[Rfam]
RNA sequence: GAUAAGAGAGGUGAGAAUCCUCUCCGCCGUAAGCCUAAGGAUUCCUGAGCCAGGUUCGUCCGCUCAGGGUUAGUCGGGACCUAACGCGAGGCCGAAAGGCGUAGCGGAUGGACAUCCGGUCAACAUUCCGGAACUACCUGGACAUCGUUAUCACGAUGGGGGGACGCAGGAGGCUAGAUGAGUCUGGUUAGGGCCGCAAGGCGACCAGAUCGAGGGCUGUAGGGAGAUUGACCAGGCAAAUCCGGUCAGUCGUUGAACUGAGGGCCCAGAGCGAGAUCUUCGGAUCACAAAGUCAUUGACGCCACGCUGCCAAGAAAAGCCUCUAAGGAGAUGUUCGGGUACCCGUACCGCAAACCGACACAGGUAGGCGAGGAGAAAAUCCUCAGGCGCA
Numbered sequence: 001g002a003u004a005a006g007a008g009a010g011g012u013g014a015g016a017a018u019c020c021u022c023u024c025c026g027c028c029g030u031a032a033g034c035c036u037a038a039g040g041a042u043u044c045c046u047g048a049g050c051c052a053g054g055u056u057c058g059u060c061c062g063c064u065c066a067g068g069g070u071u072a073g074u075c076g077g078g079a080c081c082u083a084a085c086g087c088g089a090g091g092c093c094g095a096a097a098g099g100c101g102u103a104g105c106g107g108a109u110g111g112a113c114a115u116c117c118g119g120u121c122a123a124c125a126u127u128c129c130g131g132a133a134c135u136a137c138c139u140g141g142a143c144a145u146c147g148u149u150a151u152c153a154c155g156a157u158g159g160g161g162g163g164a165c166g167c168a169g170g171a172g173g174c175u176a177g178a179u180g181a182g183u184c185u186g187g188u189u190a191g192g193g194c195c196g197c198a199a200g201g202c203g204a205c206c207a208g209a210u211c212g213a214g215g216g217c218u219g220u221a222g223g224g225a226g227a228u229u230g231a232c233c234a235g236g237c238a239a240a241u242c243c244g245g246u247c248a249g250u251c252g253u254u255g256a257a258c259u260g261a262g263g264g265c266c267c268a269g270a271g272c273g274a275g276a277u278c279u280u281c282g283g284a285u286c287a288c289a290a291a292g293u294c295a296u297u298g299a300c301g302c303c304a305c306g307c308u309g310c311c312a313a314g315a316a317a318a319g320c321c322u323c324u325a326a327g328g329a330g331a332u333g334u335u336c337g338g339g340u341a342c343c344c345g346u347a348c349c350g351c352a353a354a355c356c357g358a359c360a361c362a363g364g365u366a367g368g369c370g371a372g373g374a375g376a377a378a379a380u381c382c383u384c385a386g387g388c389g390c391a
Stems, first nucleotide, its partner, number of pairs: 006024006025389004033369004039349002044068006053061002075345004080111002085106003089102001091100003115132005135341011154327001158323004166310004172303003177297005182210008211271001215266004222259002227250007235243002273288001275286004355364002371383004
RNA: Bacterial large subunit ribosomal RNA, nucleotides 1350 to 1740